Bag-1 internal ribosome entry site (IRES): a 370-nucleotide RNA from Molossus molossus. The family's consensus secondary structure was predicted with PFOLD. NCBI's taxonomy places the organism under Eukaryota, Deuterostomia, Amniota, Theria, Molossus.
RNA sequence: UCGGCCGGCAACAAGUGCGGGUCUGGCGGAGCGCGGUGGCGCGCGAAGAUCGAGAGGCGACCGGGAGCGGCUGGGCUCCCGGCGGCGCGCCCCUCGGCCGGGCCGGGAGUCGCACCAGUCGGUGUCCCAGGCCGAGCGCGGUCCGCCUCCCUCCCAGCGAUCAUCGGUCCGGAGUGUGGUCAGCGGGCAUGUCGGGUCCAGCAGGGGCGCCGCCGCCAGUGCUCGCAGGCCGCGGGUGAAGAAGAAAGUGCGGCCUCACUCGGCCCGGAGCGAAGAGGUGGCUCGGAGCGAAGAGGUGGCUCGGAGCGAAGAGGUGGCUCGGAGCGAAGAGGUGACCCAGAGCGAAGAGGUGGCUCAGAGCGAAGAGGUG
Numbered sequence: 001u002c003g004g005c006c007g008g009c010a011a012c013a014a015g016u017g018c019g020g021g022u023c024u025g026g027c028g029g030a031g032c033g034c035g036g037u038g039g040c041g042c043g044c045g046a047a048g049a050u051c052g053a054g055a056g057g058c059g060a061c062c063g064g065g066a067g068c069g070g071c072u073g074g075g076c077u078c079c080c081g082g083c084g085g086c087g088c089g090c091c092c093c094u095c096g097g098c099c100g101g102g103c104c105g106g107g108a109g110u111c112g113c114a115c116c117a118g119u120c121g122g123u124g125u126c127c128c129a130g131g132c133c134g135a136g137c138g139c140g141g142u143c144c145g146c147c148u149c150c151c152u153c154c155c156a157g158c159g160a161u162c163a164u165c166g167g168u169c170c171g172g173a174g175u176g177u178g179g180u181c182a183g184c185g186g187g188c189a190u191g192u193c194g195g196g197u198c199c200a201g202c203a204g205g206g207g208c209g210c211c212g213c214c215g216c217c218a219g220u221g222c223u224c225g226c227a228g229g230c231c232g233c234g235g236g237u238g239a240a241g242a243a244g245a246a247a248g249u250g251c252g253g254c255c256u257c258a259c260u261c262g263g264c265c266c267g268g269a270g271c272g273a274a275g276a277g278g279u280g281g282c283u284c285g286g287a288g289c290g291a292a293g294a295g296g297u298g299g300c301u302c303g304g305a306g307c308g309a310a311g312a313g314g315u316g317g318c319u320c321g322g323a324g325c326g327a328a329g330a331g332g333u334g335a336c337c338c339a340g341a342g343c344g345a346a347g348a349g350g351u352g353g354c355u356c357a358g359a360g361c362g363a364a365g366a367g368g369u370g
Stems, first nucleotide, its partner, number of pairs: 020104008038093002041090002044052003061082008144352006167188005205224006212217001257272001259270003
Source information:
From the family's description: This family represents the bag-1 internal ribosome entry site (IRES). When expressed the BAG-1 protein is known to enhance the anti-apoptotic properties of Bcl-2. Although bag-1 translation usually occurs via a cap-dependent mechanism it has been found to contain a IRES in its 5' UTR. Translation via the IRES has been found to be common following heat shock when cap-dependent scanning is compromised. The literature on the family includes a 2001 paper in Oncogene by Coldwell et al., "The p36 isoform of BAG-1 is translated by internal ribosome entry following heat shock". Rfam 15.1 lists 248 matches to the family in 165 species.